[Rfam]
RNA sequence: AUUUGGUACUAAGUACUAGCGCCGCAGGAGUGUUUCAAUCCAUUGAAUUGGAAUCGAAAUGAAUAAAGUUUUUCACUCCUGCAGUACUAGUGCUUAUUGCUGCAU
Numbered sequence: 001a002u003u004u005g006g007u008a009c010u011a012a013g014u015a016c017u018a019g020c021g022c023c024g025c026a027g028g029a030g031u032g033u034u035u036c037a038a039u040c041c042a043u044u045g046a047a048u049u050g051g052a053a054u055c056g057a058a059a060u061g062a063a064u065a066a067a068g069u070u071u072u073u074c075a076c077u078c079c080u081g082c083a084g085u086a087c088u089a090g091u092g093c094u095u096a097u098u099g100c101u102g103c104a105u
Stems, first nucleotide, its partner, number of pairs: 001105002004102004010096010024082009
RNA: mir-252 microRNA precursor family
Organism: Dermatophagoides pteronyssinus